[Rfam]
Alphaproteobacterial ar15: a 106-nucleotide RNA from Rhizobium sp. Leaf306.
A reference for the family is del Val et al. (2012), "A survey of sRNA families in alpha-proteobacteria", RNA Biol.
Gene Ontology term of the family: protein binding.
A search with the family's covariance model found it, with a score of 76 bits.
RNA sequence: AGCAGAUGCAUAGCGGCUUCCUCCCAGUUUCGCUUGUCUGCUGUUCCCCUCUGGAGGUUUCGACCUUCAUACCUUAUGGGCUCCGGAUUAUCCGCGAGCCAUUUUG
Number, nucleotide and partner (000 for none) at each position: 001a042002g041003c040004a039005g038006a000007u036008g035009c000010a000011u000012a000013g033014c032015g031016g030017c000018u000019u000020c000021c000022u000023c000024c000025c000026a000027g000028u000029u000030u016031c015032g014033c013034u000035u008036g007037u000038c005039u004040g003041c002042u001043g000044u000045u000046c000047c000048c000049c000050u000051c000052u069053g068054g067055a066056g065057g064058u063059u000060u000061c000062g000063a058064c057065c056066u055067u054068c053069a052070u000071a000072c000073c000074u000075u000076a000077u000078g000079g100080g099081c098082u097083c096084c094085g093086g092087a091088u000089u000090a000091u087092c086093c085094g084095c000096g083097a082098g081099c080100c079101a000102u000103u000104u000105u000106g000